[Rfam]
RNA sequence: CCCAGGGCGAUGCCCUGGGCUAUCGUAGAGCGGCCCUUCGGGCCG
Numbered sequence: 001c002c003c004a005g006g007g008c009g010a011u012g013c014c015c016u017g018g019g020c021u022a023u024c025g026u027a028g029a030g031c032g033g034c035c036c037u038u039c040g041g042g043c044c045g
Stems, first nucleotide, its partner, number of pairs: 001019008032044005

The record is a 45-nucleotide RNA from Pseudobythopirellula maris, which matches "Acido-Lenti-1 RNA" in Rfam. By type it is a small RNA. The organism belongs to Pseudobythopirellula, within Bacteria. A search with the family's covariance model found it, with a score of 40 bits.